[Rfam]
Record summary:
A member of the RNA family "MIR6234 microRNA precursor family" from Digitaria exilis, 146 nucleotides long. Pairs were carried over by alignment from the consensus structure, which was predicted with RNAalifold.

RNA sequence: CUCUUUUCCGUGCACAAGUGUAUUUCUCUAUUUGACGCUAAAGAUGGAUGCAUUGAAUGAAACACUUCACAAUUGUUGUUGUUUCCAUUUGAGGUAUUCUUACCUAUAGCGUCAAGAGACGAACACACUCGUGCAUAGAACAGAAU
Dot-bracket structure: .(.((.(.(....((.(((((.(((.(((.((((((((((.((.(((((((..(((..(.(((((..((....))..).)))).)...)))..))))))..).)).))))))))))))).))).))))).)).....).).)).).